[Rfam]
The family of this 131-nucleotide RNA from Camelus dromedarius is "Small nucleolar RNA SNORA25". ACA25 is a member of the H/ACA class of snoRNA that guide the sites of modification of uridines to pseudouridines. Gene Ontology terms of the family: RNA processing and nucleolus. Rfam classes the family as an H/ACA-box small nucleolar RNA.
RNA sequence: AGGUCAUUUCAAAGAGGGCUCAUGCAGCUAUGAAUCCAGGAGCUCUUAACUAUAUGAUCAAAGCUUGAAAUUUCUUCAUAGGUUGCUACAGUCACACAAUAGUGUGAAGUUUUUUUUGAGGAGAUAUAAGA
Numbered sequence: 001a002g003g004u005c006a007u008u009u010c011a012a013a014g015a016g017g018g019c020u021c022a023u024g025c026a027g028c029u030a031u032g033a034a035u036c037c038a039g040g041a042g043c044u045c046u047u048a049a050c051u052a053u054a055u056g057a058u059c060a061a062a063g064c065u066u067g068a069a070a071u072u073u074c075u076u077c078a079u080a081g082g083u084u085g086c087u088a089c090a091g092u093c094a095c096a097c098a099a100u101a102g103u104g105u106g107a108a109g110u111u112u113u114u115u116u117u118g119a120g121g122a123g124a125u126a127u128a129a130g131a
Stems, first nucleotide, its partner, number of pairs: 002059006014047008023039001027036001073124005080117003088110002092107005
The base pairs follow the family's consensus structure, which was predicted with RNAfold.